[Rfam]
RNA: mir-3473 microRNA precursor family
Organism: Jaculus jaculus
RNA sequence: ACCACUAAGCCAUCUCUCCAGCCCUAAAUCACUUUUUUAAAAAUAUUAUUUAUGGGCUGGAGAGAUGGCUUAGUGGU
Numbered sequence: 001a002c003c004a005c006u007a008a009g010c011c012a013u014c015u016c017u018c019c020a021g022c023c024c025u026a027a028a029u030c031a032c033u034u035u036u037u038u039a040a041a042a043a044u045a046u047u048a049u050u051u052a053u054g055g056g057c058u059g060g061a062g063a064g065a066u067g068g069c070u071u072a073g074u075g076g077u
Stems, first nucleotide, its partner, number of pairs: 002076023